[Rfam]
Background
23S methyl RNA motif: a 106-nucleotide RNA from Limosilactobacillus coleohominis. NCBI's taxonomy places the organism under Bacteria, Bacillati, Bacilli, Lactobacillales, Limosilactobacillus coleohominis.
RNA sequence: UCGUUUAGCAAGCGACAUCGAUCGGGUGAGUUCGUUGGUACUUGCUAAGGUGUACUUCAUUAAAGCAGCGUUUCGCCGUGCCCACACCGAGACCCUGCUUUUUUUA
Numbered sequence: 001u002c003g004u005u006u007a008g009c010a011a012g013c014g015a016c017a018u019c020g021a022u023c024g025g026g027u028g029a030g031u032u033c034g035u036u037g038g039u040a041c042u043u044g045c046u047a048a049g050g051u052g053u054a055c056u057u058c059a060u061u062a063a064a065g066c067a068g069c070g071u072u073u074c075g076c077c078g079u080g081c082c083c084a085c086a087c088c089g090a091g092a093c094c095c096u097g098c099u100u101u102u103u104u105u106a
Stems, first nucleotide, its partner, number of pairs: 002050001004049009014039001016037002019034002062101007070093006078087003